[Rfam]
RNA sequence: GCUGGGAAGAGGAAGAAAGAGAGAGCUCAAGAGCAGUGGGAAUGGGAACAUGGAGGAAACCCUACCCUGUUUGUUUUCUCCUCCAGAAACAGAGGUGGAAGCUUCGGUUUGGUGUUUCCCGGUGCCUCCCAUUCCUAUCGUUCUUAAGCGCUCCUUCCUCUUCUUUUUUGCU
Numbered sequence: 001g002c003u004g005g006g007a008a009g010a011g012g013a014a015g016a017a018a019g020a021g022a023g024a025g026c027u028c029a030a031g032a033g034c035a036g037u038g039g040g041a042a043u044g045g046g047a048a049c050a051u052g053g054a055g056g057a058a059a060c061c062c063u064a065c066c067c068u069g070u071u072u073g074u075u076u077u078c079u080c081c082u083c084c085a086g087a088a089a090c091a092g093a094g095g096u097g098g099a100a101g102c103u104u105c106g107g108u109u110u111g112g113u114g115u116u117u118c119c120c121g122g123u124g125c126c127u128c129c130c131a132u133u134c135c136u137a138u139c140g141u142u143c144u145u146a147a148g149c150g151c152u153c154c155u156u157c158c159u160c161u162u163c164u165u166u167u168u169u170g171c172u
Stems, first nucleotide, its partner, number of pairs: 009163005015157003021153003026148002029145006037137011049124003053120001055119005061114001

The family of this 172-nucleotide RNA sequence from Setaria italica is "MIR2118 microRNA precursor family". Taxonomically the source falls in Setaria (Eukaryota, Liliopsida, Poales, Cenchrinae). Its family is annotated with miRNA-mediated post-transcriptional gene silencing and RISC complex in the Gene Ontology.